The record is a 72-nucleotide RNA sequence from Toxocara canis, which matches "mir-84 microRNA precursor family" in Rfam. The family's consensus secondary structure was predicted with RNAalifold. For this family Rfam cites "Improved annotation of C. elegans microRNAs by deep sequencing reveals structures associated with processing by Drosha and Dicer" (Warf et al., RNA, 2011).
RNA sequence: AAGGCUGAUGAGGUAGUUUAUAAAGCUGCGAGUGUUCUUUCUUCGCAGAUUUUAGGCUAUCUCGACAGCCUC
Numbered sequence: 001a002a003g004g005c006u007g008a009u010g011a012g013g014u015a016g017u018u019u020a021u022a023a024a025g026c027u028g029c030g031a032g033u034g035u036u037c038u039u040u041c042u043u044c045g046c047a048g049a050u051u052u053u054a055g056g057c058u059a060u061c062u063c064g065a066c067a068g069c070c071u072c
Stems, first nucleotide, its partner, number of pairs: 003070003010063008022052003027047003